[Rfam]
RNA sequence: UUUGAUGCUGCCGAGCCAGAGGGGUUGGUCGCGGUCCUGGCCGUAGGUGGCCAGCAGUGCCUCGGCCUC
Numbered sequence: 001u002u003u004g005a006u007g008c009u010g011c012c013g014a015g016c017c018a019g020a021g022g023g024g025u026u027g028g029u030c031g032c033g034g035u036c037c038u039g040g041c042c043g044u045a046g047g048u049g050g051c052c053a054g055c056a057g058u059g060c061c062u063c064g065g066c067c068u069c
Stems, first nucleotide, its partner, number of pairs: 014026004032059002037054003041050003
This 69-nucleotide RNA from Micromonospora haikouensis belongs to the Rfam family "ASpks TB sRNA". A search with the family's covariance model found it, with a score of 58 bits. The family's consensus secondary structure is taken from published work. NCBI's taxonomy places the organism under Bacteria, Actinomycetota, Micromonosporales, Micromonosporaceae, Micromonospora.